[Rfam]
RNA: Glycine riboswitch aptamer
Nucleotides: 105
Stems, first nucleotide, its partner, number of pairs: 006100003010096004020048004050084003053080002057078003063072001
Number, partner (000 for none) and nucleotide at each position: 001000c002000g003000a004000c005000c006100c007099c008098g009000u010096g011095c012094g013093g014000g015000a016000g017000a018000g019000a020048c021047c022046c023045u024000g025000c026000g027000a028000g029000c030000u031000c032000a033000c034000g035000c036000c037000g038000a039000g040000c041000c042000c043000c044000c045023a046022g047021g048020g049000c050084g051083c052082c053080g054079a055000a056000g057078g058077a059076g060000c061000a062000a063072g064000a065000c066000u067000c068000c069000c070000c071000a072063c073000a074000a075000a076059c077058u078057c079054u080053c081000a082052g083051g084050c085000a086000c087000c088000c089000a090000u091000g092000a093013c094012c095011g096010u097000u098008c099007g100006g101000g102000c103000g104000a105000g